[Rfam]
RNA sequence: UACACAAAGCACAUGAUGACAAAACACUGAAACUGACUGGAUGAAGUACAUUCAAUCCAACACUGAGCUUUGUGUC
Numbered sequence: 001u002a003c004a005c006a007a008a009g010c011a012c013a014u015g016a017u018g019a020c021a022a023a024a025c026a027c028u029g030a031a032a033c034u035g036a037c038u039g040g041a042u043g044a045a046g047u048a049c050a051u052u053c054a055a056u057c058c059a060a061c062a063c064u065g066a067g068c069u070u071u072g073u074g075u076c
Base pairs, nucleotide, nucleotide: 002075003074004073005072006071007070008069009068010067
About this RNA: This 76-nucleotide RNA sequence from Rhipidura dahli belongs to the Rfam family "Small nucleolar RNA SNORD69". On this family, see Huttenhofer et al., EMBO J 2001: "RNomics: an experimental approach that identifies 201 candidates for novel, small, non-messenger RNAs in mouse". Rfam 15.1 lists 524 matches to the family in 496 species. The organism belongs to Rhipidura, within Eukaryota.